[Rfam]
RNA sequence: AUACGUGCAGGGUGGAGAUGCACAAACGACGGACUGCGUAGCACUCGACUUUCCAGACGCCCCGAGCGUCCGCAGCGUUGUUUGAUUCCUCCUUCUGUUUGAGUGCUUCUGUAGCUGACAGUUUGCAGGAGACGCCAGUCGCGCCAGGCCCGAGGGCCUGCGCCGCUUGACAAGGGCAACGGCCAGACCGUUCCCGGCGCACCUGACACCGACCACGAGAGUCGUGUGUGCCAACCGUCGUUUCCGGCAGCCCGGAAACCA
Numbered sequence: 001a002u003a004c005g006u007g008c009a010g011g012g013u014g015g016a017g018a019u020g021c022a023c024a025a026a027c028g029a030c031g032g033a034c035u036g037c038g039u040a041g042c043a044c045u046c047g048a049c050u051u052u053c054c055a056g057a058c059g060c061c062c063c064g065a066g067c068g069u070c071c072g073c074a075g076c077g078u079u080g081u082u083u084g085a086u087u088c089c090u091c092c093u094u095c096u097g098u099u100u101g102a103g104u105g106c107u108u109c110u111g112u113a114g115c116u117g118a119c120a121g122u123u124u125g126c127a128g129g130a131g132a133c134g135c136c137a138g139u140c141g142c143g144c145c146a147g148g149c150c151c152g153a154g155g156g157c158c159u160g161c162g163c164c165g166c167u168u169g170a171c172a173a174g175g176g177c178a179a180c181g182g183c184c185a186g187a188c189c190g191u192u193c194c195c196g197g198c199g200c201a202c203c204u205g206a207c208a209c210c211g212a213c214c215a216c217g218a219g220a221g222u223c224g225u226g227u228g229u230g231c232c233a234a235c236c237g238u239c240g241u242u243u244c245c246g247g248c249a250g251c252c253c254g255g256a257a258a259c260c261a
Stems, first nucleotide, its partner, number of pairs: 014092004023084009036073003040050002056070004093130005133199004138171003141166003147158004175194002178192005206229004210224004240259007
This 261-nucleotide sequence from Pseudomonas oryzae belongs to the Rfam family "rne-II RNA". It scores 194 bits against the family's covariance model. It is annotated as a cis-regulatory element.